Soft rot Enterobacteriaceae Rev 39 5'UTR: a 302-nucleotide RNA sequence from Brenneria sp. EniD312. The base pairs follow the family's consensus structure, which was predicted with RNAfold. The source organism's lineage runs through Bacteria, Pseudomonadati, Gammaproteobacteria, Enterobacterales and Brenneria. The sequence is in the family's curated seed alignment.
[Rfam]
RNA sequence: AAUUGUUGUCAUAUCGUGCUGGAAUGUGGUAACUCUGUAUGUAUUCGUUCGACAGUAGAUUAAUGAACACUCUAUUUAUGAAAGCUUUCUCCCUAGUGAUUAGCCUAGUCGUGAUUAGCGUGGUGGUGAUUAUUAUCCCACCGUGCGGGGCAGCACUUGGACGAAGAAUGGCUUAGAAAUCAGGCCCGAAUUCAAGAAAACCCCCGCACCGAAAGGUCGGGGGUUUUUUUUUCGGGCGUAAUGUAUAACGUAAGGGAGCAGAAAAUGGUUAGUGGUACAGAAUGCUGUUAUUCCCGCAAGAU
Dot-bracket structure: ....((((((((..(......)...))))))))...(((.(..(((((((.......))...)))))...).)))..........(((.(.(.((...((((((((((.(((.....))).(((((.(((....))))))))((.((((......)))).))(((....((.((........)).))...))).((((((((((((.(((....))))))))))))))).)).)))).))))...))..).).)))(((((.(..((........)).....).))))).............
Numbered sequence: 001a002a003u004u005g006u007u008g009u010c011a012u013a014u015c016g017u018g019c020u021g022g023a024a025u026g027u028g029g030u031a032a033c034u035c036u037g038u039a040u041g042u043a044u045u046c047g048u049u050c051g052a053c054a055g056u057a058g059a060u061u062a063a064u065g066a067a068c069a070c071u072c073u074a075u076u077u078a079u080g081a082a083a084g085c086u087u088u089c090u091c092c093c094u095a096g097u098g099a100u101u102a103g104c105c106u107a108g109u110c111g112u113g114a115u116u117a118g119c120g121u122g123g124u125g126g127u128g129a130u131u132a133u134u135a136u137c138c139c140a141c142c143g144u145g146c147g148g149g150g151c152a153g154c155a156c157u158u159g160g161a162c163g164a165a166g167a168a169u170g171g172c173u174u175a176g177a178a179a180u181c182a183g184g185c186c187c188g189a190a191u192u193c194a195a196g197a198a199a200a201c202c203c204c205c206g207c208a209c210c211g212a213a214a215g216g217u218c219g220g221g222g223g224u225u226u227u228u229u230u231u232u233c234g235g236g237c238g239u240a241a242u243g244u245a246u247a248a249c250g251u252a253a254g255g256g257a258g259c260a261g262a263a264a265a266u267g268g269u270u271a272g273u274g275g276u277a278c279a280g281a282a283u284g285c286u287g288u289u290a291u292u293c294c295c296g297c298a299a300g301a302u
Stems, first nucleotide, its partner, number of pairs: 005033008015022001037075003041071001044067005049059002086256003090252001092250001094247002099242004103237004107232002110120003122142005128137003143162002146159004163193003170187002173184002195229012208217003257289005263283001266277002